The family of this 196-nucleotide RNA sequence from Zygotorulaspora mrakii is "Small nucleolar RNA snR43". Its Rfam clan is "SNORA9 clan". Gene Ontology terms of the family: nucleolus and RNA processing. NCBI's taxonomy places the organism under Eukaryota, Opisthokonta, saccharomyceta, Saccharomycetes, Zygotorulaspora. The match comes from Rfam's covariance-model search (135 bits). The literature on the family includes a 1996 paper in Cell by Balakin et al., "The RNA world of the nucleolus: two major families of small RNAs defined by different box elements with related functions".

RNA sequence: CACUCCUAUUUCUGCCCCAUGCUUCAAUCUCUUCCGUGAAACAAUGGGUCUUGUAAAGGAGAAGAUAAAGCCAGAUAACGUCACACUUACAACUUUGAUACAUCCGUAAAUGUGAUUUUGCCUGGGUCGUGUGAAUGCGUAUUAAACUUGCUGGAUCCUAAUCAAUUUCAGUAAGAUAUUAUGCUUCACUAUAUCU
Numbered sequence: 001c002a003c004u005c006c007u008a009u010u011u012c013u014g015c016c017c018c019a020u021g022c023u024u025c026a027a028u029c030u031c032u033u034c035c036g037u038g039a040a041a042c043a044a045u046g047g048g049u050c051u052u053g054u055a056a057a058g059g060a061g062a063a064g065a066u067a068a069a070g071c072c073a074g075a076u077a078a079c080g081u082c083a084c085a086c087u088u089a090c091a092a093c094u095u096u097g098a099u100a101c102a103u104c105c106g107u108a109a110a111u112g113u114g115a116u117u118u119u120g121c122c123u124g125g126g127u128c129g130u131g132u133g134a135a136u137g138c139g140u141a142u143u144a145a146a147c148u149u150g151c152u153g154g155a156u157c158c159u160a161a162u163c164a165a166u167u168u169c170a171g172u173a174a175g176a177u178a179u180u181a182u183g184c185u186u187c188a189c190u191a192u193a194u195c196u
Base pairs, nucleotide, nucleotide: 003061004060005059006058016048017047018046019045020043021042023040024039025038071125072124073123074122076120077119078118080116081115082114083113084112085111087109088108089107090106131189132188133187134186137184138183139182140181141180147175148174149173150172151171154168155167